[Rfam]
RNA sequence: GACAUUGUUUGACAACGAGAGAGAGCACGCUUGUCGGCAGUCUUGCAAGGUCCACGACUGUUCUACAUGCGUGCUCUCCCUCGUCGUCAUGCUGUU
Numbered sequence: 001g002a003c004a005u006u007g008u009u010u011g012a013c014a015a016c017g018a019g020a021g022a023g024a025g026c027a028c029g030c031u032u033g034u035c036g037g038c039a040g041u042c043u044u045g046c047a048a049g050g051u052c053c054a055c056g057a058c059u060g061u062u063c064u065a066c067a068u069g070c071g072u073g074c075u076c077u078c079c080c081u082c083g084u085c086g087u088c089a090u091g092c093u094g095u096u
Stems, first nucleotide, its partner, number of pairs: 010089004016083002021078001023076001025074006032067003

The family of this 96-nucleotide sequence from Protea cynaroides is "MIR535 microRNA precursor family". Rfam 15.1 lists 544 matches to the family in 108 species. It scores 79 bits against the family's covariance model. Rfam links the family to the GO terms RISC complex and miRNA-mediated post-transcriptional gene silencing. The family's consensus secondary structure was predicted with RNAalifold.